Shown here is a 50-nucleotide RNA from Massilia sp. BSC265, a member of the family "Guanidine-II riboswitch aptamer (mini-ykkC)". The family's consensus secondary structure is taken from published work.
RNA sequence: UCUGGAGGACGACCUCCCCCGCCGUGGGAACAAUGUCCGGGACGGCCCGG
Numbered sequence: 001u002c003u004g005g006a007g008g009a010c011g012a013c014c015u016c017c018c019c020c021g022c023c024g025u026g027g028g029a030a031c032a033a034u035g036u037c038c039g040g041g042a043c044g045g046c047c048c049g050g
Base pairs, nucleotide, nucleotide: 004017005016006015007014008013037050038049039048040047041046

Background:
From the family's description: Simpler in structure and has fewer highly conserved nucleotide positions than the ykkC-yxkD leader. The literature on the family includes a 2017 paper in Biochemistry by Sherlock et al., "Biochemical Validation of a Second Guanidine Riboswitch Class in Bacteria".